[Rfam]
RNA sequence: AAGUAAGGGCUUAAGGUGGAUGCCUAGGCACUGGAAGGCGAUGAAGGUCGUGACAAGCUGCGAUAAGCUGCGGGGAGAAGCAAAUAUUCUAUAAUCCGCAGAUCACCGAAUGGGAAAACCUAUAGAAGUAAACCUUCUAUAUCAUAAACUGAAUCCAUAGGUUUAUGAGGCGACACCCAGGGAACUGAAACAUCUAAGUACCUGGAGGAAAAGUAAUCAAAAUUGAGAUUCCCUAAGUAGUGGCGAGCGAAAGGGGAAGAGCCUAAACCAUAAUAAUGUCAAGUUGUAAGGCGUUGUUAUUAUGGUGUUGUAGGGCGGUGAGUGAUGUACUUACAUGCAUCGACUUUGCUUUAUAUGAUAGUGGAACUGUUUUGGAAAAGCAGACCAUAGUGAGUGAUAGUCUCGUACACGAAAUCAUAUAGACAAGGUUUUACCGUUCCUGAGUAGGGCGGGGCACGUGAAACCCUGUUUGAAUCUGGGUAGACCACUAUCCAAGGCAAAAUACUAACCAGUGACCAAUAGUGUAGAGUACCGUGAGGGAAAGGUGAAAAGUCUCCCGUUGAGGGUUAUUAAAUAGAACCUGAAACCUUAAGCUUACAA
Numbered sequence: 001a002a003g004u005a006a007g008g009g010c011u012u013a014a015g016g017u018g019g020a021u022g023c024c025u026a027g028g029c030a031c032u033g034g035a036a037g038g039c040g041a042u043g044a045a046g047g048u049c050g051u052g053a054c055a056a057g058c059u060g061c062g063a064u065a066a067g068c069u070g071c072g073g074g075g076a077g078a079a080g081c082a083a084a085u086a087u088u089c090u091a092u093a094a095u096c097c098g099c100a101g102a103u104c105a106c107c108g109a110a111u112g113g114g115a116a117a118a119c120c121u122a123u124a125g126a127a128g129u130a131a132a133c134c135u136u137c138u139a140u141a142u143c144a145u146a147a148a149c150u151g152a153a154u155c156c157a158u159a160g161g162u163u164u165a166u167g168a169g170g171c172g173a174c175a176c177c178c179a180g181g182g183a184a185c186u187g188a189a190a191c192a193u194c195u196a197a198g199u200a201c202c203u204g205g206a207g208g209a210a211a212a213g214u215a216a217u218c219a220a221a222a223u224u225g226a227g228a229u230u231c232c233c234u235a236a237g238u239a240g241u242g243g244c245g246a247g248c249g250a251a252a253g254g255g256g257a258a259g260a261g262c263c264u265a266a267a268c269c270a271u272a273a274u275a276a277u278g279u280c281a282a283g284u285u286g287u288a289a290g291g292c293g294u295u296g297u298u299a300u301u302a303u304g305g306u307g308u309u310g311u312a313g314g315g316c317g318g319u320g321a322g323u324g325a326u327g328u329a330c331u332u333a334c335a336u337g338c339a340u341c342g343a344c345u346u347u348g349c350u351u352u353a354u355a356u357g358a359u360a361g362u363g364g365a366a367c368u369g370u371u372u373u374g375g376a377a378a379a380g381c382a383g384a385c386c387a388u389a390g391u392g393a394g395u396g397a398u399a400g401u402c403u404c405g406u407a408c409a410c411g412a413a414a415u416c417a418u419a420u421a422g423a424c425a426a427g428g429u430u431u432u433a434c435c436g437u438u439c440c441u442g443a444g445u446a447g448g449g450c451g452g453g454g455c456a457c458g459u460g461a462a463a464c465c466c467u468g469u470u471u472g473a474a475u476c477u478g479g480g481u482a483g484a485c486c487a488c489u490a491u492c493c494a495a496g497g498c499a500a501a502a503u504a505c506u507a508a509c510c511a512g513u514g515a516c517c518a519a520u521a522g523u524g525u526a527g528a529g530u531a532c533c534g535u536g537a538g539g540g541a542a543a544g545g546u547g548a549a550a551a552g553u554c555u556c557c558c559g560u561u562g563a564g565g566g567u568u569a570u571u572a573a574a575u576a577g578a579a580c581c582u583g584a585a586a587c588c589u590u591a592a593g594c595u596u597a598c599a600a
Stems, first nucleotide, its partner, number of pairs: 007596010022581001023545002027517002029514006036506002038171002046107003049062003068101007077089003112121003122140007142168009176207001177205005187194002217226002229502001230257005240248002261498003268305011312441003317435005347426001350423010361410003367383004372379001386390001392404003447471008478493005532539002556566003
Dot-bracket structure: ......((((((((((.....(((..((((((((.((((......((((((........))).....(((((((..(((.......))).....)))))))...)))....(((....)))(((((((.....))))))).(((((((((.........))))))))).))....((((((.....((....))......))))).).........((......))..((((((.....((.....))....)))))...(((....(((((((((((................)))))))))))......(((..(((((.........................(..((((((((((.(((...((((.(......)))))..(...).(((.......)))...)))...))))))))))..)....)))))...))).....((((((((.........))))))))......(((((......)))))..)))...)..))..)))))).))..............((....))....))..........(((.....)))..............).....))))))))))....

Shown here is a 600-nucleotide part of an RNA from Brachyspira murdochii, a member of the family "Bacterial large subunit ribosomal RNA". Clan: LSU clan. Taxonomically the source falls in Brachyspira murdochii (Bacteria, Pseudomonadati, Brachyspiraceae, Brachyspira).